[Rfam]
RNA: Purine riboswitch aptamer
Organism: Calidifontibacillus erzurumensis
RNA sequence: AAAUGAAUAUCAACAAAACCUCAUAUAAUCUUGGGAAUAUGGCCCAAAAGUCUCUACCCGAUUACCGUAAAUAAUCGGACUAUGAGGAAGGUGUAUUUCAUC
Dot-bracket structure: ..................(((((((...(.(((((.......))))).)........(((((((.......)))))))..)))))))...............